[Rfam]
RNA sequence: UGAAUCCCGGGCAACCGGUGUUGACCGACGGGCAGGAGUCAGCAGAGGGCAUAGUAGGUUCAGCCGUGGAACCGAAGGCC
Number, nucleotide and partner (000 for none) at each position: 001u000002g000003a022004a021005u020006c000007c018008c017009g016010g015011g000012c000013a000014a000015c010016c009017g008018g007019u000020g005021u004022u003023g000024a000025c000026c000027g000028a000029c000030g000031g000032g000033c000034a000035g000036g000037a000038g000039u046040c045041a000042g000043c000044a000045g040046a039047g000048g080049g079050c078051a000052u000053a000054g000055u000056a000057g073058g072059u071060u070061c069062a000063g000064c000065c000066g000067u000068g000069g061070a060071a059072c058073c057074g000075a000076a000077g000078g050079c049080c048
Rfam assigns this 80-nucleotide RNA sequence from Halomonas halmophila to the family "Group II catalytic intron D1-D4-1". From the family's description: Group II introns are found in rRNA, tRNA and mRNA of organelles in fungi, plants and protists, and also in mRNA in bacteria. Taxonomically the source falls in Halomonas (Bacteria, Pseudomonadati, Gammaproteobacteria, Oceanospirillales). The pairing is the family consensus, mapped onto this sequence. Its family is annotated with Group II intron splicing in the Gene Ontology.